[Rfam]
Nucleotides: 114
Base pairs, nucleotide, nucleotide: 002113004111008107009106010105011104013102014101015100018097020095021094037077038076040074049063050062
Number, partner (000 for none) and nucleotide at each position: 001000u002113u003000g004111g005000g006000c007000u008107a009106u010105g011104g012000u013102g014101a015100c016000a017000u018097g019000u020095a021094c022000c023000c024000c025000a026000a027000g028000a029000c030000c031000u032000g033000g034000u035000c036000a037077g038076g039000c040074a041000u042000g043000c044000u045000g046000g047000u048000g049063g050062g051000g052000g053000c054000u055000c056000u057000u058000u059000g060000u061000g062050c063049c064000u065000u066000g067000g068000c069000u070000g071000g072000a073000g074040u075000u076038c077037u078000u079000a080000c081000c082000a083000u084000u085000g086000c087000c088000a089000u090000g091000c092000c093000u094021g095020u096000c097018c098000c099000a100015g101014u102013c103000a104011u105010u106009g107008u108000c109000a110000a111004c112000a113002a114000c